[Rfam]
RNA sequence: CUAUCAGAGUUAGUCAAUGUCAUUACCCUCUUGUUAGGAUAUGGGAAUACUAAUGUAGA
Numbered sequence: 001c002u003a004u005c006a007g008a009g010u011u012a013g014u015c016a017a018u019g020u021c022a023u024u025a026c027c028c029u030c031u032u033g034u035u036a037g038g039a040u041a042u043g044g045g046a047a048u049a050c051u052a053a054u055g056u057a058g059a
Stems, first nucleotide, its partner, number of pairs: 009054006020044004027038003

Rfam assigns this 59-nucleotide RNA sequence from Lactobacillus corticis to the family "Transposase-1 RNA". A search with the family's covariance model found it, with a score of 74 bits. Taxonomically the source falls in Lactobacillus (Bacteria, Bacillati, Bacillota, Lactobacillaceae).